[Rfam]
RNA sequence: CGGGUUCUGCGCUUCGCGUGUCACGGGUCAAUUCCAGUGGCCUUAAGCAACUCCGAGGGAGCUGGCUCUGUCCGGGCCCUGGUCCGGUUAUCUGGCGCCCACCUGUAUAUACAGGUCCUCGGGAAUGGUACCCUACGGUCGCCGUGGUUCCCGC
Numbered sequence: 001c002g003g004g005u006u007c008u009g010c011g012c013u014u015c016g017c018g019u020g021u022c023a024c025g026g027g028u029c030a031a032u033u034c035c036a037g038u039g040g041c042c043u044u045a046a047g048c049a050a051c052u053c054c055g056a057g058g059g060a061g062c063u064g065g066c067u068c069u070g071u072c073c074g075g076g077c078c079c080u081g082g083u084c085c086g087g088u089u090a091u092c093u094g095g096c097g098c099c100c101a102c103c104u105g106u107a108u109a110u111a112c113a114g115g116u117c118c119u120c121g122g123g124a125a126u127g128g129u130a131c132c133c134u135a136c137g138g139u140c141g142c143c144g145u146g147g148u149u150c151c152c153g154c
Stems, first nucleotide, its partner, number of pairs: 002152003007147005012141001015138001017137003032124004037119001039117004057100003061096005070089001072087006